[Rfam]
RNA sequence: UGUGGUGGGAAGUCCACAGUAGAGGUCACAUCCUGAGUGUUCAUCACUCCCUACCAAUACCUUGGAGAAUGUCUAAGAUCAAGAGCCAAUCGCCAACUUUGCAGGGUGUUACCUGAUGCAGGUGAGGAAGUUACCAGGCAUGUGGUUCAGGCAGUGACAGAGAGCAGGAGAAGCAGGCCCAGCACUGUGGAUGCAGUUACUGCCUGGAAUGGGAAUGGGAAAGGCUGCUGGGUGAGCUUAAUGUGUGGGAUGAGGUAAGGAAUCUCACAACCCAAUUCAGACUACUCUCCUACCAAA
Numbered sequence: 001u002g003u004g005g006u007g008g009g010a011a012g013u014c015c016a017c018a019g020u021a022g023a024g025g026u027c028a029c030a031u032c033c034u035g036a037g038u039g040u041u042c043a044u045c046a047c048u049c050c051c052u053a054c055c056a057a058u059a060c061c062u063u064g065g066a067g068a069a070u071g072u073c074u075a076a077g078a079u080c081a082a083g084a085g086c087c088a089a090u091c092g093c094c095a096a097c098u099u100u101g102c103a104g105g106g107u108g109u110u111a112c113c114u115g116a117u118g119c120a121g122g123u124g125a126g127g128a129a130g131u132u133a134c135c136a137g138g139c140a141u142g143u144g145g146u147u148c149a150g151g152c153a154g155u156g157a158c159a160g161a162g163a164g165c166a167g168g169a170g171a172a173g174c175a176g177g178c179c180c181a182g183c184a185c186u187g188u189g190g191a192u193g194c195a196g197u198u199a200c201u202g203c204c205u206g207g208a209a210u211g212g213g214a215a216u217g218g219g220a221a222a223g224g225c226u227g228c229u230g231g232g233u234g235a236g237c238u239u240a241a242u243g244u245g246u247g248g249g250a251u252g253a254g255g256u257a258a259g260g261a262a263u264c265u266c267a268c269a270a271c272c273c274a275a276u277u278c279a280g281a282c283u284a285c286u287c288u289c290c291u292a293c294c295a296a297a
Base pairs, nucleotide, nucleotide: 001297003295004294008290009289010288013249014248015247016246017245018244022063023062024061025060035049036048037047038046039045073280074279076277077276084233086231087230094108095107097105098104109125110124111123112122113121114120126229127228129226130225131224132223146214147213148212251267252266253265254264255263256262